Annotation:
A member of the RNA family "Rhodo-rpoB RNA", 92 nucleotides long. Rfam classes the family as a cis-regulatory element. It is one of the family's seed sequences.
RNA sequence: GGCUCGGGAGUCGACCGGUGGGACGGUUGGCAGGAAUGGAGCCUCACCCCGUUUCGCAAACGGUGCGCGGCCGGAGCCCGACGGCGCGCGCA
Numbered sequence: 001g002g003c004u005c006g007g008g009a010g011u012c013g014a015c016c017g018g019u020g021g022g023a024c025g026g027u028u029g030g031c032a033g034g035a036a037u038g039g040a041g042c043c044u045c046a047c048c049c050c051g052u053u054u055c056g057c058a059a060a061c062g063g064u065g066c067g068c069g070g071c072c073g074g075a076g077c078c079c080g081a082c083g084g085c086g087c088g089c090g091c092a
Stems, first nucleotide, its partner, number of pairs: 001043005010031008064092005070085004